[Rfam]
Nucleotides: 074
Base pairs, nucleotide, nucleotide: 003074004073005071006070007069009025011023012022013021040067041066043065044064045063046062047061049060051058
Number, partner (000 for none) and nucleotide at each position: 001000g002000u003074g004073c005071u006070c007069c008000a009025g010000c011023a012022g013021g014000a015000a016000u017000u018000g019000a020000a021013c022012c023011u024000a025009c026000a027000a028000u029000u030000u031000u032000g033000c034000c035000a036000a037000u038000u039000a040067u041066g042000a043065g044064u045063u046062g047061g048000g049060g050000c051058g052000c053000u054000u055000u056000a057000a058051c059000a060049u061047u062046c063045a064044g065043c066041c067040a068000g069007g070006g071005a072000u073004g074003c
The family of this 74-nucleotide RNA from Musa balbisiana is "Plastid-ycf2 5UTR RNA". It scores 67 bits against the family's covariance model. The literature on the family includes a 2023 paper in Plant Commun by Richter et al., "Retrograde signaling in plants: A critical review focusing on the GUN pathway and beyond". It is annotated as a cis-regulatory element. The base pairs follow the family's consensus structure, which was predicted with LocARNA. Lineage of the source: Eukaryota > Tracheophyta > Mesangiospermae > Musaceae > Musa. Plastid ycf2 is a non-coding RNA (ncRNA) recognised in plastids. It was found in the prime untranslated region (5UTR) of ycf2 genes, it presents a tRNA-like motif which suggests it can be involved in mRNA maturation, particularly involved in defining the precise 5' end of the transcript.